[Rfam]
RNA sequence: CUCUUCUCAUGAGCACCUCCCUGUCAAACAGUGACGGCAAAUGGAUUCGCAUGAGAAGUAGAGAAAACUCGCAGUUUAUACAGGCAGCUACCUUGGUGGGAGUUGCCCAUGUCUGCUGUGAAACAGUU
Numbered sequence: 001c002u003c004u005u006c007u008c009a010u011g012a013g014c015a016c017c018u019c020c021c022u023g024u025c026a027a028a029c030a031g032u033g034a035c036g037g038c039a040a041a042u043g044g045a046u047u048c049g050c051a052u053g054a055g056a057a058g059u060a061g062a063g064a065a066a067a068c069u070c071g072c073a074g075u076u077u078a079u080a081c082a083g084g085c086a087g088c089u090a091c092c093u094u095g096g097u098g099g100g101a102g103u104u105g106c107c108c109a110u111g112u113c114u115g116c117u118g119u120g121a122a123a124c125a126g127u128u
Stems, first nucleotide, its partner, number of pairs: 003058006013050002016044002021037005069121006088102002091099001